Shown here is a 135-nucleotide RNA from Acanthisitta chloris, a member of the family "Small nucleolar RNA SNORA61". Rfam's curators write: ACA61 is a member of the H/ACA class of snoRNA that guide the sites of modification of uridines to pseudouridines. The family's consensus secondary structure was predicted with PFOLD. The family has 25 seed sequences and 881 matches in Rfam 15.1.
[Rfam]
RNA sequence: UCCCUCCAGAUCCCUUUCCCAUGAGAUCUGGAUACCGAUCUUGUGGUCGUAAAAGGAGGAAAAGUAACAUUCCCACUGGUCUCAGCCUCUGUGCAGGUGCAUCCUGCUCCGAGAGGGGCCAGUGGGAAGACAGGC
Number, nucleotide and partner (000 for none) at each position: 001u000002c000003c059004c058005u057006c056007c055008a000009g000010a000011u000012c000013c000014c000015u000016u000017u000018c000019c046020c045021a044022u043023g000024a000025g040026a039027u038028c037029u000030g000031g000032a000033u000034a000035c000036c000037g028038a027039u026040c025041u000042u000043g022044u021045g020046g019047u000048c000049g000050u000051a000052a000053a000054a000055g007056g006057a005058g004059g003060a000061a000062a000063a000064g000065u000066a000067a000068c000069a000070u000071u000072c000073c000074c000075a000076c122077u121078g120079g119080u118081c117082u116083c000084a000085g000086c000087c000088u000089c000090u000091g000092u000093g000094c000095a000096g000097g000098u000099g000100c000101a000102u000103c000104c000105u000106g000107c000108u000109c000110c000111g000112a000113g000114a000115g000116g082117g081118g080119c079120c078121a077122g076123u000124g000125g000126g000127a000128a000129g000130a000131c000132a000133g000134g000135c000